Nucleotides: 087
Stems, first nucleotide, its partner, number of pairs: 002086001004084002038048003
Number, partner (000 for none) and nucleotide at each position: 001000u002086g003000g004084c005083a006000a007000a008000u009000g010000a011000u012000g013000a014000u015000g016000u017000g018000a019000c020000c021000a022000c023000u024000g025000a026000g027000c028000a029000a030000u031000c032000u033000g034000a035000g036000c037000u038048c039047u040046g041000g042000g043000a044000a045000a046040c047039a048038g049000g050000u051000g052000a053000u054000a055000g056000a057000g058000a059000c060000u061000a062000u063000g064000u065000c066000u067000c068000a069000a070000g071000g072000c073000a074000a075000g076000a077000c078000c079000a080000g081000g082000a083005u084004g085000a086002c087000a
Overview
The family of this 87-nucleotide sequence from Jaculus jaculus is "small Cajal body-specific RNA 18". It scores 52 bits against the family's covariance model. Rfam links the family to the GO terms RNA processing, Cajal body and nucleolus. On this family, see Darzacq et al., EMBO J 2002: "Cajal body-specific small nuclear RNAs: a novel class of 2'-O-methylation and pseudouridylation guide RNAs". Rfam's curators write: scaRNAs are a specific class of small nuclear RNAs which localise to the Cajal bodies and guide the modification of RNA polymerase II transcribed spliceosomal RNAs U1, U2, U4, U5 and U12. This C/D box domain U91 (also known as U4-8) was identified by Darzacq and is predicted to guide the 2'O-ribose methylation of U4 snRNA C8. Lineage of the source: Eukaryota > Bilateria > Theria > Glires > Jaculus. The family's consensus secondary structure was predicted with PFOLD. Rfam 15.1 lists 406 matches to the family in 191 species.